[Rfam]
RNA sequence: ACAGAGGAACCCGAAAAUCUUAUAAGAGUAGGGA
Numbered sequence: 001a002c003a004g005a006g007g008a009a010c011c012c013g014a015a016a017a018u019c020u021u022a023u024a025a026g027a028g029u030a031g032g033g034a
Base pairs, nucleotide, nucleotide: 003020004019005018010033011032012031
Shown here is a 34-nucleotide sequence, a member of the family "DUF805b RNA". It is annotated as a cis-regulatory element. Clan: DUF805 clan. The family's consensus secondary structure is taken from published work. The sequence is in the family's curated seed alignment.